[Rfam]
RNA: Group II catalytic intron D1-D4-6
RNA sequence: CAAGUCCUCUAUCCGGUAAGGUGUAGCGAACCGCCGGAGACCUUAAGUCAUGGGCUGCUGCUCGUGAGGGUAGUGGUUAAGCGUUGACAGGGGAACAUACAGGCUCGGUAUUGAGCUUUUGAAAUCAGGGUUGGGAAUGCUGACCGUGUUGGGUGAACGUGAAGGCAAAACAGCCUGCUGCGUGCAGCCAGCAGCAGGCUGUUUGUCUGCGUACA
Numbered sequence: 001c002a003a004g005u006c007c008u009c010u011a012u013c014c015g016g017u018a019a020g021g022u023g024u025a026g027c028g029a030a031c032c033g034c035c036g037g038a039g040a041c042c043u044u045a046a047g048u049c050a051u052g053g054g055c056u057g058c059u060g061c062u063c064g065u066g067a068g069g070g071u072a073g074u075g076g077u078u079a080a081g082c083g084u085u086g087a088c089a090g091g092g093g094a095a096c097a098u099a100c101a102g103g104c105u106c107g108g109u110a111u112u113g114a115g116c117u118u119u120u121g122a123a124a125u126c127a128g129g130g131u132u133g134g135g136a137a138u139g140c141u142g143a144c145c146g147u148g149u150u151g152g153g154u155g156a157a158c159g160u161g162a163a164g165g166c167a168a169a170a171c172a173g174c175c176u177g178c179u180g181c182g183u184g185c186a187g188c189c190a191g192c193a194g195c196a197g198g199c200u201g202u203u204u205g206u207c208u209g210c211g212u213a214c215a
Stems, first nucleotide, its partner, number of pairs: 012038005020032003024190001026188002041093004047088004051083002053078011112209001113207001115206002136204002139166003145159003171201011